[Rfam]
RNA sequence: AUACUCUGGUUUCUCUUAAGAUCAUAUAAACCUUCAGCCUUUUACUAAAGAUUUCCAUGGAGAGAAACAACUCUGAGUCUUAAACCAAUUUUUUGAGGCCUUGUUUCAGCAAGGCU
Number, nucleotide and partner (000 for none) at each position: 001a000002u000003a078004c077005u076006c075007u000008g000009g068010u067011u066012u065013c064014u063015c062016u061017u060018a000019a058020g000021a000022u000023c000024a000025u000026a000027u000028a054029a053030a052031c000032c050033u049034u048035c000036a000037g000038c000039c000040u000041u000042u000043u000044a000045c000046u000047a000048a034049a033050g032051a000052u030053u029054u028055c000056c000057a000058u019059g000060g017061a016062g015063a014064g013065a012066a011067a010068c009069a000070a000071c000072u000073c000074u000075g006076a005077g004078u003079c000080u000081u000082a000083a000084a000085c000086c000087a000088a000089u000090u000091u000092u000093u000094u000095g000096a116097g000098g115099c114100c113101u112102u111103g110104u000105u000106u000107c000108a000109g000110c103111a102112a101113g100114g099115c098116u096

Shown here is a 116-nucleotide RNA from Marmota monax, a member of the family "U5 spliceosomal RNA". On this family, see Zwieb, Nucleic Acids Res 1997: "The uRNA database". The family's consensus secondary structure is taken from published work. NCBI's taxonomy places the organism under Eukaryota, Metazoa, Sarcopterygii, Xerinae, Marmota.